[Rfam]
RNA sequence: GGUGGCAAAUGAUGAGAACUUAUUGCAUAACUGAUGAACUGUGGUGACACUACUCCGCUUAUUAUCUGAUGCCAUC
Numbered sequence: 001g002g003u004g005g006c007a008a009a010u011g012a013u014g015a016g017a018a019c020u021u022a023u024u025g026c027a028u029a030a031c032u033g034a035u036g037a038a039c040u041g042u043g044g045u046g047a048c049a050c051u052a053c054u055c056c057g058c059u060u061a062u063u064a065u066c067u068g069a070u071g072c073c074a075u076c
Base pairs, nucleotide, nucleotide: 003074004073005072006071007070
RNA: Small nucleolar RNA R16